Plant small nucleolar RNA R71: a 104-nucleotide sequence from Arachis hypogaea. The family's RNA type in Rfam is C/D-box small nucleolar RNA. A search with the family's covariance model found it, with a score of 44 bits. A reference for the family is Brown et al. (2003), "Plant snoRNAs: functional evolution and new modes of gene expression", Trends Plant Sci. The source organism's lineage runs through Eukaryota, Streptophyta, Tracheophyta, Magnoliopsida and Arachis.

RNA sequence: AUGCCAGAAGGAUACUCUUUGGUCAACUGCUUGUAUCUUUCCCAAGCUUCAUAGAGGAAUUCACCAUCUUUUUGCUUGAAGGUCUGAAAAUCCACUCUAAGCUU
Numbered sequence: 001a002u003g004c005c006a007g008a009a010g011g012a013u014a015c016u017c018u019u020u021g022g023u024c025a026a027c028u029g030c031u032u033g034u035a036u037c038u039u040u041c042c043c044a045a046g047c048u049u050c051a052u053a054g055a056g057g058a059a060u061u062c063a064c065c066a067u068c069u070u071u072u073u074g075c076u077u078g079a080a081g082g083u084c085u086g087a088a089a090a091u092c093c094a095c096u097c098u099a100a101g102c103u104u
Stems, first nucleotide, its partner, number of pairs: 001104001003102002006098001054071002057068001